A member of the RNA family "Small nucleolar RNA SNORD58" from Antrostomus carolinensis, 71 nucleotides long. Its Rfam clan is "SNORD58 clan". It scores 67 bits against the family's covariance model. Rfam links the family to the GO terms nucleolus and RNA processing. For this family Rfam cites "Site-specific ribose methylation of preribosomal RNA: a novel function for small nucleolar RNAs" (Kiss-Laszlo et al., Cell, 1996). snoRNA U58 is found in introns 1, 3 and 6 of the ribosomal protein RPL17 gene in humans.
[Rfam]
RNA sequence: CUGCCGUGAUGACUUUUCUUAGGACACCUUUGGAUUUUAAGGAUGAAAAGAAACCGUAAUUUCUGAGCAGC
Numbered sequence: 001c002u003g004c005c006g007u008g009a010u011g012a013c014u015u016u017u018c019u020u021a022g023g024a025c026a027c028c029u030u031u032g033g034a035u036u037u038u039a040a041g042g043a044u045g046a047a048a049a050g051a052a053a054c055c056g057u058a059a060u061u062u063c064u065g066a067g068c069a070g071c
Stems, first nucleotide, its partner, number of pairs: 001070004